[Rfam]
RNA sequence: AGUAACUCUAUUAUAGAGUGAACCAUUGGAGCAAAUUUAACUCUAUAAUAGAGUUACUCUAUUUUAGCUAUUAUAGAGUUAAAUUUGCUCCAAUGGUUCACUCUAUAAUAGAGUUA
Numbered sequence: 001a002g003u004a005a006c007u008c009u010a011u012u013a014u015a016g017a018g019u020g021a022a023c024c025a026u027u028g029g030a031g032c033a034a035a036u037u038u039a040a041c042u043c044u045a046u047a048a049u050a051g052a053g054u055u056a057c058u059c060u061a062u063u064u065u066a067g068c069u070a071u072u073a074u075a076g077a078g079u080u081a082a083a084u085u086u087g088c089u090c091c092a093a094u095g096g097u098u099c100a101c102u103c104u105a106u107a108a109u110a111g112a113g114u115u116a
Stems, first nucleotide, its partner, number of pairs: 006113006013106016030089003
The family of this 116-nucleotide sequence from Brassica napus is "MIR397 microRNA precursor family".
Rfam 15.1 lists 496 matches to the family in 218 species.
NCBI's taxonomy places the organism under Eukaryota, Streptophytina, Magnoliopsida, rosids, Brassica.
The literature on the family includes a 2009 paper in BMC Genomics by Mica et al., "High throughput approaches reveal splicing of primary microRNA transcripts and tissue specific expression of mature microRNAs in Vitis vinifera".